[Rfam]
RNA sequence: AAAAAACAUUGAACCCAGUACACUUUAUUUUUUUACAAGAGAGCUGAUGUCUGGUGCAAAUCAGCAAAAAAUAAUUUGGAAGUUCCAGUUCAUUUAUGAUGUGCCUUUCGAGAUAAGAAAGGACGGAAAGCAGCCGUUAUCUGCUAUCAAGUGCAGUAUUUAUACUGAACUUGGGUGGUACCGCGAAACUAAAACCAGUUCGUCCCAAGA
Dot-bracket structure: ......((.((((.......((..((.....(((........((((((...........)))))))))....))..))..............))))...))..((((((.......)))))).(((.......))).................(((((....)))))....((((.......(((((...........)))))))))...